[Rfam]
RNA: TPP riboswitch aptamer (THI element)
Organism: Sphingobacteriales bacterium UPWRP_1
RNA sequence: UAUACAUGGCAGGGGUGCUUCGCCCGGCAGCGCUACACAGCGUGCGGAUGAGGCUGAGAUAAUACCCUUUGAACCUGACCCGGGUAAUGCCGGCGUAGGGAGGAAUUUUCGGGGCGGU
Numbered sequence: 001u002a003u004a005c006a007u008g009g010c011a012g013g014g015g016u017g018c019u020u021c022g023c024c025c026g027g028c029a030g031c032g033c034u035a036c037a038c039a040g041c042g043u044g045c046g047g048a049u050g051a052g053g054c055u056g057a058g059a060u061a062a063u064a065c066c067c068u069u070u071g072a073a074c075c076u077g078a079c080c081c082g083g084g085u086a087a088u089g090c091c092g093g094c095g096u097a098g099g100g101a102g103g104a105a106u107u108u109u110c111g112g113g114g115c116g117g118u
Base pairs, nucleotide, nucleotide: 006106007105010102011068012067013066014065016062017054018053019052020051021050074099075098076097077096080093081092082091083090